Shown here is a 248-nucleotide part of an RNA from Allobosea sp. Root381, a member of the family "Bacterial large subunit ribosomal RNA". Taxonomically the source falls in Allobosea (Bacteria, Pseudomonadati, Pseudomonadota, Alloboseaceae).
RNA sequence: GGAUAUUUGAGAGGAUCUGCCCUUAGUACGAGAGGACCGGGGUGGACGUACCUCUGGUGGACCUGUUGUGGCGCCAGCCGCAGUGCAGGGUAGCUAUGUACGGUCGGGAUAACCGCUGAAUGCAUCUAAGCGGGAAACCCACCUCAAAACGAGAUAUCCCUUGAGAGCCGUGGAAGACGACCACGUUGAUAGGCCGGGUGUGUAAGUGCAGCAAUGUGCUCAGCUUACCGGUACUAAUUGCUCGAUCG
Number, nucleotide and partner (000 for none) at each position: 001g159002g158003a157004u156005a155006u154007u153008u152009g000010a000011g145012a144013g143014g142015a000016u000017c045018u044019g043020c042021c041022c040023u039024u000025a000026g000027u000028a000029c000030g000031a000032g000033a000034g000035g000036a000037c000038c000039g023040g022041g021042g020043u019044g018045g017046a000047c102048g101049u100050a099051c098052c000053u000054c000055u096056g095057g094058u000059g000060g000061a000062c089063c088064u087065g086066u085067u082068g081069u080070g079071g078072c077073g000074c000075c000076a000077g072078c071079c070080g069081c068082a067083g000084u000085g066086c065087a064088g063089g062090g000091u000092a000093g000094c057095u056096a055097u000098g051099u050100a049101c048102g047103g000104u000105c000106g140107g139108g138109a000110u000111a000112a000113c133114c132115g131116c130117u129118g000119a000120a000121u000122g000123c000124a000125u000126c000127u000128a000129a117130g116131c115132g114133g113134g000135a000136a000137a000138c108139c107140c106141a000142c014143c013144u012145c011146a000147a000148a000149a000150c000151g000152a008153g007154a006155u005156a004157u003158c002159c001160c000161u000162u245163g000164a000165g243166a242167g241168c240169c185170g184171u183172g182173g181174a000175a000176g000177a000178c000179g000180a000181c173182c172183a171184c170185g169186u000187u000188g000189a000190u236191a235192g234193g232194c231195c230196g229197g228198g226199u000200g224201u000202g000203u000204a000205a000206g219207u218208g217209c216210a215211g000212c000213a000214a000215u210216g209217u208218g207219c206220u000221c000222a000223g000224c200225u000226u198227a000228c197229c196230g195231g194232u193233a000234c192235u191236a190237a000238u000239u000240g168241c167242u166243c165244g000245a162246u000247c000248g000